[Rfam]
RNA sequence: AGCUACAACUUUAUUGCGUAUUGUAUAACCUCAAUAAUAUGGUUUGAGGGUCUCUACCAGGAGCCGUAAAAUCCUGAUUACAAAAAUGUGUAUCGUACCU
Numbered sequence: 001a002g003c004u005a006c007a008a009c010u011u012u013a014u015u016g017c018g019u020a021u022u023g024u025a026u027a028a029c030c031u032c033a034a035u036a037a038u039a040u041g042g043u044u045u046g047a048g049g050g051u052c053u054c055u056a057c058c059a060g061g062a063g064c065c066g067u068a069a070a071a072u073c074c075u076g077a078u079u080a081c082a083a084a085a086a087u088g089u090g091u092a093u094c095g096u097a098c099c100u
Base pairs, nucleotide, nucleotide: 019085021083022082023081024080025079029049030048031047032046033045034044058076059075060074061073062072